[Rfam]
Nucleotides: 099
Stems, first nucleotide, its partner, number of pairs: 023089008035080008048071007
Number, partner (000 for none) and nucleotide at each position: 001000g002000c003000c004000c005000c006000g007000u008000g009000a010000g011000c012000a013000u014000u015000a016000a017000c018000c019000c020000a021000c022000a023089c024088a025087c026086g027085u028084g029083u030082c031000g032000a033000c034000a035080c036079g037078a038077u039076g040075g041074c042073c043000u044000g045000g046000g047000u048071g049070c050069c051068u052067u053066u054065g055000a056000u057000u058000c059000u060000c061000g062000a063000a064000u065054c066053g067052g068051g069050g070049g071048u072000u073042g074041g075040u076039c077038a078037u079036u080035g081000g082030g083029a084028u085027a086026c087025g088024u089023g090000g091000a092000g093000g094000c095000c096000c097000a098000a099000c
A member of the RNA family "t44 RNA" from Pseudomonas sp. SDI, 99 nucleotides long. It is annotated as a small RNA. It scores 70 bits against the family's covariance model. The organism belongs to Pseudomonas, within Bacteria.